[Rfam]
Shown here is a 100-nucleotide RNA from Acidihalobacter aeolianus, a member of the family "t44 RNA".

RNA sequence: UGCUGGCAUCCGUAACGACACACAUGCGCCGUCACGGCUCGCUGGGUGCCCAAUCCGUUGAAGCGGAAGGGUUGCGGGUCGGGGCGUAUGGAGGUCCAAC
Numbered sequence: 001u002g003c004u005g006g007c008a009u010c011c012g013u014a015a016c017g018a019c020a021c022a023c024a025u026g027c028g029c030c031g032u033c034a035c036g037g038c039u040c041g042c043u044g045g046g047u048g049c050c051c052a053a054u055c056c057g058u059u060g061a062a063g064c065g066g067a068a069g070g071g072u073u074g075c076g077g078g079u080c081g082g083g084g085c086g087u088a089u090g091g092a093g094g095u096c097c098a099a100c
Base pairs, nucleotide, nucleotide: 023090024089025088026087027086028085029084030083035081036080037079038078039077040076041075042074048072049071050070051069
About this RNA:
Taxonomically the source falls in Acidihalobacter (Bacteria, Pseudomonadati, Pseudomonadota, Chromatiales). It scores 64 bits against the family's covariance model. Pairs were carried over by alignment from the consensus structure, which was predicted with LocARNA. About the family: This family consists of a number of bacterial RNA genes of between 135 and 170 bases in length. The t44 gene has been identified in several species of enteric bacteria but homologs have also been identified in Pseudomonas and Coxiella species.